RNA sequence: UAAAAGCAUUAAGAGAGGGUAAUUACCUCAGCAACCUGGAAGGCUACCAAGGUGCUAAGAAGAUGUGGCUUUAAGCAAAAAAGAGCCAAU
Numbered sequence: 001u002a003a004a005a006g007c008a009u010u011a012a013g014a015g016a017g018g019g020u021a022a023u024u025a026c027c028u029c030a031g032c033a034a035c036c037u038g039g040a041a042g043g044c045u046a047c048c049a050a051g052g053u054g055c056u057a058a059g060a061a062g063a064u065g066u067g068g069c070u071u072u073a074a075g076c077a078a079a080a081a082a083g084a085g086c087c088a089a090u
Stems, first nucleotide, its partner, number of pairs: 006066005015029001017028004030056003035052003038048002043087001045085001068076003
RNA: SAM-I/IV (S-adenosyl methionine) riboswitch aptamer